Shown here is a 153-nucleotide RNA from Catenulispora acidiphila, a member of the family "c-di-AMP riboswitch aptamer (ydaO/yuaA leader)". Rfam links the family to the GO terms regulation of gene expression and cyclic-di-AMP binding. A search with the family's covariance model found it, with a score of 94 bits. The organism belongs to Catenulispora acidiphila, within Bacteria.
RNA sequence: CCGGCGCCUACGCCGAAUCCCAAAAGCGCGCAAAACGCCGGACGGGAACCGGGGACCCACGUCCCAAUGGGGUGAAUCCGCUUCCAGAAGUGGUAGGGCAGCCUCUUUCGCCCGAACCCGUCAGCUAACCCGGUAGGCGGUCAAAGAGGAAGA
Numbered sequence: 001c002c003g004g005c006g007c008c009u010a011c012g013c014c015g016a017a018u019c020c021c022a023a024a025a026g027c028g029c030g031c032a033a034a035a036c037g038c039c040g041g042a043c044g045g046g047a048a049c050c051g052g053g054g055a056c057c058c059a060c061g062u063c064c065c066a067a068u069g070g071g072g073u074g075a076a077u078c079c080g081c082u083u084c085c086a087g088a089a090g091u092g093g094u095a096g097g098g099c100a101g102c103c104u105c106u107u108u109c110g111c112c113c114g115a116a117c118c119c120g121u122c123a124g125c126u127a128a129c130c131c132g133g134u135a136g137g138c139g140g141u142c143a144a145a146g147a148g149g150a151a152g153a
Stems, first nucleotide, its partner, number of pairs: 011139004018047003048134006058069002070119003078093004096113004